The record is a 319-nucleotide RNA from Methanospirillum lacunae, which matches "Archaeal RNase P" in Rfam. From the family's description: Ribonuclease P (RNase P) is a ubiquitous endoribonuclease, found in archaea, bacteria and eukarya as well as chloroplasts and mitochondria. A search with the family's covariance model found it, with a score of 211 bits.
RNA sequence: GAGAGGGAGAGUGCGGCUGACGGUAGCCGGUUUGAUUAUAUCUGAUCGGCAGCUGAGGAAAGUCCCUCCACCUACCGGGUACGCAGCCUCGUUCAUUCGGGGAUGGCGAGAGUCAUGGCUAUGGCACAGAAACGACACGGCCUGAUCUGAGCUAUGAUGCAGAUCCAAACUGCAGAGCAUCGAAGUUCAGGAGUCGAUGGAACGGUGAAUCCCUGCGGGUGCAAGCCGGAACAGGGCAUACAGGCAGCCCGGUGUCUGCCCGGGUUCGGCGCUAAGCUGAAUGCCGCAAUGAACAGAAGGGGGCUUACUCCUCCCACUC
Number, nucleotide and partner (000 for none) at each position: 001g319002a318003g317004a000005g315006g314007g313008a312009g311010a309011g308012u288013g287014c286015g285016g284017c283018u000019g000020a000021c055022g054023g053024u052025a000026g000027c000028c000029g000030g000031u000032u000033u000034g000035a000036u000037u000038a000039u000040a000041u000042c000043u000044g000045a000046u000047c000048g000049g000050c000051a000052g024053c023054u022055g021056a000057g000058g000059a000060a306061a305062g304063u000064c303065c302066c301067u300068c299069c221070a220071c219072c218073u000074a253075c252076c251077g250078g249079g248080u000081a000082c217083g216084c215085a214086g213087c102088c101089u100090c099091g098092u000093u000094c000095a000096u000097u000098c091099g090100g089101g088102g087103a116104u115105g114106g113107c112108g000109a000110g000111a000112g107113u106114c105115a104116u103117g212118g211119c000120u000121a000122u208123g000124g206125c205126a000127c000128a000129g000130a000131a000132a000133c000134g000135a000136c000137a000138c196139g195140g194141c191142c190143u189144g188145a187146u000147c185148u184149g000150a000151g000152c000153u000154a000155u000156g000157a000158u000159g173160c172161a000162g000163a000164u000165c000166c000167a000168a000169a000170c000171u000172g160173c159174a000175g000176a000177g000178c000179a000180u000181c000182g000183a000184a148185g147186u000187u145188c144189a143190g142191g141192a000193g000194u140195c139196g138197a000198u000199g000200g000201a000202a000203c000204g000205g125206u124207g000208a122209a000210u000211c118212c117213c086214u085215g084216c083217g082218g072219g071220u070221g069222c000223a000224a000225g270226c269227c268228g267229g000230a000231a000232c000233a000234g261235g260236g259237c258238a257239u000240a000241c000242a000243g000244g000245c000246a000247g000248c079249c078250c077251g076252g075253u074254g000255u000256c000257u238258g237259c236260c235261c234262g000263g000264g000265u000266u000267c228268g227269g226270c225271g000272c000273u000274a000275a000276g000277c000278u000279g000280a000281a000282u000283g017284c016285c015286g014287c013288a012289a000290u000291g000292a000293a000294c000295a000296g000297a000298a000299g068300g067301g066302g065303g064304c062305u061306u060307a000308c011309u010310c000311c009312u008313c007314c006315c005316a000317c003318u002319c001
By type it is a ribozyme.